The record is a 429-nucleotide sequence from Shewanella fodinae, which matches "cspA thermoregulator" in Rfam. For this family Rfam cites "The cspA mRNA is a thermosensor that modulates translation of the cold-shock protein CspA" (Giuliodori et al., Mol Cell, 2010).
RNA sequence: ACUUAUUUAUGGAAUGAUUUAUAGUCAGGGAGGCUUGAAAGUUGGGCUUAUUUUUAUGUGUUCAAAACGACUUGUUCGUCCUGUAAGCAUAAAUAAUACCGGCAUUUUCAGCUCCACCGCCGUAAAGGCUUAGUAUUGUUUUUGUUACAGGAUUAAGACUAUGUCUCAAGUAACUGGUGUUGUUAAAUGGUUUAACGCUGACAAAGGUUUCGGCUUCAUCGCUCAGGAAUCAGGUCCAGACGUAUUCGUACACUUCCGUGCUAUCAACUCUGAAGGUUUCAAAACUCUGGACGAAGGUCAGAAAGUUUCUUUCACCGUUACUCAGGGCCAGAAAGGUCCACAAGCUGAAAAUGUAACUAUUAUCAGCUAAUUUAAUUUCUUUAUAAGAAAUUCGAAAAAAACGCGGCAAUUAGCGCCGCGUUUUUUUAU
Numbered sequence: 001a002c003u004u005a006u007u008u009a010u011g012g013a014a015u016g017a018u019u020u021a022u023a024g025u026c027a028g029g030g031a032g033g034c035u036u037g038a039a040a041g042u043u044g045g046g047c048u049u050a051u052u053u054u055u056a057u058g059u060g061u062u063c064a065a066a067a068c069g070a071c072u073u074g075u076u077c078g079u080c081c082u083g084u085a086a087g088c089a090u091a092a093a094u095a096a097u098a099c100c101g102g103c104a105u106u107u108u109c110a111g112c113u114c115c116a117c118c119g120c121c122g123u124a125a126a127g128g129c130u131u132a133g134u135a136u137u138g139u140u141u142u143u144g145u146u147a148c149a150g151g152a153u154u155a156a157g158a159c160u161a162u163g164u165c166u167c168a169a170g171u172a173a174c175u176g177g178u179g180u181u182g183u184u185a186a187a188u189g190g191u192u193u194a195a196c197g198c199u200g201a202c203a204a205a206g207g208u209u210u211c212g213g214c215u216u217c218a219u220c221g222c223u224c225a226g227g228a229a230u231c232a233g234g235u236c237c238a239g240a241c242g243u244a245u246u247c248g249u250a251c252a253c254u255u256c257c258g259u260g261c262u263a264u265c266a267a268c269u270c271u272g273a274a275g276g277u278u279u280c281a282a283a284a285c286u287c288u289g290g291a292c293g294a295a296g297g298u299c300a301g302a303a304a305g306u307u308u309c310u311u312u313c314a315c316c317g318u319u320a321c322u323c324a325g326g327g328c329c330a331g332a333a334a335g336g337u338c339c340a341c342a343a344g345c346u347g348a349a350a351a352u353g354u355a356a357c358u359a360u361u362a363u364c365a366g367c368u369a370a371u372u373u374a375a376u377u378u379c380u381u382u383a384u385a386a387g388a389a390a391u392u393c394g395a396a397a398a399a400a401a402c403g404c405g406g407c408a409a410u411u412a413g414c415g416c417c418g419c420g421u422u423u424u425u426u427u428a429u
Base pairs, nucleotide, nucleotide: 005019007017008016009015025225027223028222030220037217038216040215041214042213043212047206048205049204054201055200056199059197060196061195062194064193065192067191068190073163074162075161080151081150082149083148084147085146086145091107092106093105119129120128121127165177166176229319231317233316234315239247240246250308252306253305254304255303259300260299261297262296264291265290267288272285325339326338329336343368344367345366346365347364348363375391377389378388379387380386396426397425398424399423400422401421402420403419404418405417406416407415